[Rfam]
RNA sequence: CCCCGCCGCCGGACGGCACUCCACUUCAUGGCGUGCGGCGGUCAAAAAAAGGAGGAAAAAAACCCGCUGUGACUGGCGGUGCGGCAGUGUGGAGACCUGCCGUAAGGCGGCGCGUCCAUUGCGGCGGCCGCGAGGCUACUCCUUGCGGAGGCAGAGCAGCCGCAGUCAAAGAAAGAUGGCA
Numbered sequence: 001c002c003c004c005g006c007c008g009c010c011g012g013a014c015g016g017c018a019c020u021c022c023a024c025u026u027c028a029u030g031g032c033g034u035g036c037g038g039c040g041g042u043c044a045a046a047a048a049a050a051g052g053a054g055g056a057a058a059a060a061a062a063c064c065c066g067c068u069g070u071g072a073c074u075g076g077c078g079g080u081g082c083g084g085c086a087g088u089g090u091g092g093a094g095a096c097c098u099g100c101c102g103u104a105a106g107g108c109g110g111c112g113c114g115u116c117c118a119u120u121g122c123g124g125c126g127g128c129c130g131c132g133a134g135g136c137u138a139c140u141c142c143u144u145g146c147g148g149a150g151g152c153a154g155a156g157c158a159g160c161c162g163c164a165g166u167c168a169a170a171g172a173a174a175g176a177u178g179g180c181a
Stems, first nucleotide, its partner, number of pairs: 006041006013034003017030002064079004070168006080104008089096002107131005113126003134161004139156003144153003
Description: Rfam assigns this 181-nucleotide RNA sequence to the family "malK-I RNA".